Description
The family of this 88-nucleotide RNA from Ornithorhynchus anatinus is "mir-1420 microRNA precursor family". Lineage of the source: Eukaryota > Euteleostomi > Dipnotetrapodomorpha > Tetrapoda > Ornithorhynchus. Rfam's curators put it in the seed alignment. The family's consensus secondary structure was predicted with RNAalifold.

RNA sequence: UGCUUAAUCCAGCCUAUCCGGCCUGGGAGCACUCUCUAGUGAUAUACAUGGGGAAAUUGCCACCAGGUCAGAUGGGUUUGGUUGGCUC
Dot-bracket structure: ...((((((..((.((((.((.((((..(((.(.(((..............))).).)))..)))).)).)))).))..))))))...